[Rfam]
RNA sequence: CCUGGCUGUGAUGACACACUUGCCCUCACUGAGAUCAGACUUGAUUGAGACACACAAUGUACUCUACUGAGCCACG
Numbered sequence: 001c002c003u004g005g006c007u008g009u010g011a012u013g014a015c016a017c018a019c020u021u022g023c024c025c026u027c028a029c030u031g032a033g034a035u036c037a038g039a040c041u042u043g044a045u046u047g048a049g050a051c052a053c054a055c056a057a058u059g060u061a062c063u064c065u066a067c068u069g070a071g072c073c074a075c076g
Stems, first nucleotide, its partner, number of pairs: 001076001003074004

Small nucleolar RNA SNORD103/SNORD85: a 76-nucleotide sequence from Collichthys lucidus. Rfam links the family to the GO terms RNA processing and nucleolus. Rfam classes the family as a C/D-box small nucleolar RNA. Pairs were carried over by alignment from the consensus structure. Taxonomically the source falls in Collichthys (Eukaryota, Deuterostomia, Clupeocephala, Euteleosteomorpha). For this family Rfam cites "Identification of 13 novel human modification guide RNAs" (Vitali et al., Nucleic Acids Res, 2003).